[Rfam]
RNA sequence: GGGGAAACACUUAGAACCCCGUGAGCGUUGUGUUAAUAGUCGUGCUUUUGGCCGAGUGCGACGGUUAGUGAAUC
Numbered sequence: 001g002g003g004g005a006a007a008c009a010c011u012u013a014g015a016a017c018c019c020c021g022u023g024a025g026c027g028u029u030g031u032g033u034u035a036a037u038a039g040u041c042g043u044g045c046u047u048u049u050g051g052c053c054g055a056g057u058g059c060g061a062c063g064g065u066u067a068g069u070g071a072a073u074c
Stems, first nucleotide, its partner, number of pairs: 001020004033068005039062009